U7 small nuclear RNA: a 53-nucleotide sequence from Oncorhynchus tshawytscha. Lineage of the source: Eukaryota > Opisthokonta > Bilateria > Euteleosteomorpha > Oncorhynchus. The base pairs follow the family's consensus structure, which was predicted with PFOLD.
RNA sequence: AAAUGUGCUCUUUUAGUAUUUCUCUAGAAGGUUUCUUCAAGGAGAAAGCCUAC
Numbered sequence: 001a002a003a004u005g006u007g008c009u010c011u012u013u014u015a016g017u018a019u020u021u022c023u024c025u026a027g028a029a030g031g032u033u034u035c036u037u038c039a040a041g042g043a044g045a046a047a048g049c050c051u052a053c
Stems, first nucleotide, its partner, number of pairs: 030050003033046005